[Rfam]
RNA sequence: ACACCCAUUCGCGGGAGUGACACCUGUUGUCGCUGAGAGGGCGUAAACGAUUGGAACGCCGACCGCCAGAACCUGUCCGGAUCAUGCCGGCGUAGGAAGGAGAUGGUGUGGUUAC
Number, nucleotide and partner (000 for none) at each position: 001a000002c000003a000004c000005c000006c105007a104008u103009u102010c000011g066012c065013g064014g063015g000016a000017g033018u032019g031020a030021c029022a000023c000024c000025u000026g000027u000028u000029g021030u020031c019032g018033c017034u000035g000036a000037g000038a000039g000040g060041g059042c058043g057044u056045a000046a000047a000048c000049g000050a000051u000052u000053g000054g000055a000056a044057c043058g042059c041060c040061g000062a000063c014064c013065g012066c011067c000068a000069g000070a000071a000072c096073c095074u094075g093076u000077c090078c089079g088080g087081a000082u000083c000084a000085u000086g000087c080088c079089g078090g077091c000092g000093u075094a074095g073096g072097a000098a000099g000100g000101a000102g009103a008104u007105g006106g000107u000108g000109u000110g000111g000112u000113u000114a000115c000
RNA: TPP riboswitch aptamer (THI element)